A member of the RNA family "DUF3800-I RNA" from Adlercreutzia equolifaciens, 119 nucleotides long. It is one of the family's seed sequences. Actinobacteria, Firmicutes, Fusobacteria, Proteobacteria (1 example), Tenericutes (2 examples). Lineage of the source: Bacteria > Bacillati > Eggerthellales > Eggerthellaceae > Adlercreutzia equolifaciens subsp. equolifaciens.
RNA sequence: GCUUGGUACAGGCAGCAAUGCGCUGUAUACCCGGGCUCCCGAACUAAACGUUUAAGCGGCAUUUUCUGUCGUCGGCCCCGGGCGAGAUACCGCCUUCGGGCGGUAUUUUCGUAUCAGGA
Numbered sequence: 001g002c003u004u005g006g007u008a009c010a011g012g013c014a015g016c017a018a019u020g021c022g023c024u025g026u027a028u029a030c031c032c033g034g035g036c037u038c039c040c041g042a043a044c045u046a047a048a049c050g051u052u053u054a055a056g057c058g059g060c061a062u063u064u065u066c067u068g069u070c071g072u073c074g075g076c077c078c079c080g081g082g083c084g085a086g087a088u089a090c091c092g093c094c095u096u097c098g099g100g101c102g103g104u105a106u107u108u109u110c111g112u113a114u115c116a117g118g119a
Base pairs, nucleotide, nucleotide: 007027008026009025010024011023012021013020014019030082031081032080033079034078035077039075040074041073042052043051044050056072057071058070059069060068061067084109085108086107087106088105089104090103091102092101093100
The base pairs follow the family's consensus structure, which is taken from published work.